[Rfam]
Rfam assigns this 99-nucleotide RNA from Acidocella aromatica to the family "Bacterial small signal recognition particle RNA". It is annotated as a non-coding RNA gene. The match comes from Rfam's covariance-model search (51 bits). The organism belongs to Acidocella, within Bacteria. Rfam describes the family as follows. The signal recognition particle (SRP) is a universally conserved ribonucleoprotein involved in the co-translational targeting of proteins to membranes.
RNA sequence: GGGAGAUCGGCGGCGGACAGCGCGUGCCGCCAACCUGGUCAGGGCCGGAAGGCAGCAGCCACAACGGAUUUCGCAUGGGUCGCUGUCCGGUCUCCCACC
Numbered sequence: 001g002g003g004a005g006a007u008c009g010g011c012g013g014c015g016g017a018c019a020g021c022g023c024g025u026g027c028c029g030c031c032a033a034c035c036u037g038g039u040c041a042g043g044g045c046c047g048g049a050a051g052g053c054a055g056c057a058g059c060c061a062c063a064a065c066g067g068a069u070u071u072c073g074c075a076u077g078g079g080u081c082g083c084u085g086u087c088c089g090g091u092c093u094c095c096c097a098c099c
Stems, first nucleotide, its partner, number of pairs: 004093005010086006018077002022074003027067003036061004044053003